[Rfam]
RNA sequence: UGGUAUAUAGUUUAAACAAAACGAAUGAUUUCGACUCAUUAAAUUAUGAUAAUCAUAUUUACCAA
Numbered sequence: 001u002g003g004u005a006u007a008u009a010g011u012u013u014a015a016a017c018a019a020a021a022c023g024a025a026u027g028a029u030u031u032c033g034a035c036u037c038a039u040u041a042a043a044u045u046a047u048g049a050u051a052a053u054c055a056u057a058u059u060u061a062c063c064a065a
Stems, first nucleotide, its partner, number of pairs: 001064005007058001010022004024040005045057004
The family of this 65-nucleotide sequence is "tRNA". Rfam classes the family as a transfer RNA. Its family is annotated with triplet codon-amino acid adaptor activity in the Gene Ontology. The family's consensus secondary structure is taken from published work.